Annotation: The family of this 89-nucleotide RNA from Phormidium nigroviride is "Fluoride riboswitch aptamer (crcB RNA motif)". The organism belongs to Phormidium nigroviride, within Bacteria. Rfam links the family to the GO terms positive regulation of gene expression and response to fluoride.
[Rfam]
RNA sequence: AGUAAUGAUGGCGAUGGAGCUCGCCGAAACCGCCCUUCGUUAUUAAUAAUCUUCAUAACGUUUAAAAGGCUGAUGGCUCCUACUGUUCC
Numbered sequence: 001a002g003u004a005a006u007g008a009u010g011g012c013g014a015u016g017g018a019g020c021u022c023g024c025c026g027a028a029a030c031c032g033c034c035c036u037u038c039g040u041u042a043u044u045a046a047u048a049a050u051c052u053u054c055a056u057a058a059c060g061u062u063u064a065a066a067a068g069g070c071u072g073a074u075g076g077c078u079c080c081u082a083c084u085g086u087u088c089c
Stems, first nucleotide, its partner, number of pairs: 010025004016080006032070003